Metazoan signal recognition particle RNA: a 299-nucleotide sequence from Clunio marinus.
RNA sequence: ACUGGAGGUUUGGCGCCCUCUGUAAUCUCAGCUUCUGAGAGGUUGGUUUAUGGACUGAUUUGAGGUUGGGAGCCCUGUCUAUUGAACGGGCAUGUUGACGGUUCGUCCGCGAUAAGCUUGUCAUCAACAUAGAUCAUUAUACGGAGGUAUUGGUGGUCUAGGUUGCUAAGGAAGAGGGCAAAGGGCUAGAAUCGAAAGAGAGCAGCCAGAACUUCUCGUGGCAAAGCAGUAUCACGGAUGGCGGACCAGAGUGAAUCCGCCAAUAACAGCUCAAUCAAUACAAUCACACCAUAAACUUU
Numbered sequence: 001a002c003u004g005g006a007g008g009u010u011u012g013g014c015g016c017c018c019u020c021u022g023u024a025a026u027c028u029c030a031g032c033u034u035c036u037g038a039g040a041g042g043u044u045g046g047u048u049u050a051u052g053g054a055c056u057g058a059u060u061u062g063a064g065g066u067u068g069g070g071a072g073c074c075c076u077g078u079c080u081a082u083u084g085a086a087c088g089g090g091c092a093u094g095u096u097g098a099c100g101g102u103u104c105g106u107c108c109g110c111g112a113u114a115a116g117c118u119u120g121u122c123a124u125c126a127a128c129a130u131a132g133a134u135c136a137u138u139a140u141a142c143g144g145a146g147g148u149a150u151u152g153g154u155g156g157u158c159u160a161g162g163u164u165g166c167u168a169a170g171g172a173a174g175a176g177g178g179c180a181a182a183g184g185g186c187u188a189g190a191a192u193c194g195a196a197a198g199a200g201a202g203c204a205g206c207c208a209g210a211a212c213u214u215c216u217c218g219u220g221g222c223a224a225a226g227c228a229g230u231a232u233c234a235c236g237g238a239u240g241g242c243g244g245a246c247c248a249g250a251g252u253g254a255a256u257c258c259g260c261c262a263a264u265a266a267c268a269g270c271u272c273a274a275u276c277a278a279u280a281c282a283a284u285c286a287c288a289c290c291a292u293a294a295a296c297u298u299u
Stems, first nucleotide, its partner, number of pairs: 001043003004021005010015001026040003045297009056286005064276007075269003080265004087259004091253003095249001100247007107237002111233004116227002118224007125165004130160010140149003166170001173216005184207003192199002
Dot-bracket structure: ((((((((.(....).)))))....(((.........)))))).(((((((((..(((((...(((((((....(((..((((...(((((((.(....(((((((((..((((.(((((((((((((.(((((((((((((....))).)))))))))).))))(...)..(((((......(((.....((....)).....)))....))))).))))))).))..))))..))...))))))).).)))..))))..)))).)))))))))).....)))))..)))))))))..
Clan: SRP clan. Rfam describes the family as follows. The signal recognition particle (SRP) is a universally conserved ribonucleoprotein. It is annotated as a non-coding RNA gene. Lineage of the source: Eukaryota > Panarthropoda > Mandibulata > Eumetabola > Clunio.